[Rfam]
RNA sequence: GCGGACUACCAGAGUCCGCUGGGAUGUAGCCCAAACCGGGCUGAACCGCAAA
Numbered sequence: 001g002c003g004g005a006c007u008a009c010c011a012g013a014g015u016c017c018g019c020u021g022g023g024a025u026g027u028a029g030c031c032c033a034a035a036c037c038g039g040g041c042u043g044a045a046c047c048g049c050a051a052a
Stems, first nucleotide, its partner, number of pairs: 001019007020048003028042005
RNA: eL15-Euryarchaeota ribosomal protein leader